Shown here is a 69-nucleotide RNA from Synechocystis sp. PCC 6803, a member of the family "Cyano-1 RNA". Taxonomically the source falls in Synechocystis (Bacteria, Cyanobacteriota, Synechococcales, Merismopediaceae). The family's consensus secondary structure is taken from published work. The family's RNA type in Rfam is small RNA. The sequence is in the family's curated seed alignment.
RNA sequence: ACAGGUGUGAGGAAAUUAGAAAAACAUCUGGAGUCGAAACAAGGAAAGACGCCCCAGGUGUUUUUUUAU
Numbered sequence: 001a002c003a004g005g006u007g008u009g010a011g012g013a014a015a016u017u018a019g020a021a022a023a024a025c026a027u028c029u030g031g032a033g034u035c036g037a038a039a040c041a042a043g044g045a046a047a048g049a050c051g052c053c054c055c056a057g058g059u060g061u062u063u064u065u066u067u068a069u
Stems, first nucleotide, its partner, number of pairs: 015065001021064005028057002030054002033050003